[Rfam]
RNA sequence: CUUACAGAGUUUAUUGGCAUUCUGUCCACCUCCAAUAAAGAGAGAGACCCAUGUGCCGUUUGUGUGAAAUGGAGGUGGGCAUCCUGCCAACUGAGCUCUGUUGG
Numbered sequence: 001c002u003u004a005c006a007g008a009g010u011u012u013a014u015u016g017g018c019a020u021u022c023u024g025u026c027c028a029c030c031u032c033c034a035a036u037a038a039a040g041a042g043a044g045a046g047a048c049c050c051a052u053g054u055g056c057c058g059u060u061u062g063u064g065u066g067a068a069a070u071g072g073a074g075g076u077g078g079g080c081a082u083c084c085u086g087c088c089a090a091c092u093g094a095g096c097u098c099u100g101u102u103g104g
Stems, first nucleotide, its partner, number of pairs: 011094001014090006023081011
RNA: MIR394 microRNA precursor family
Organism: Camphora micrantha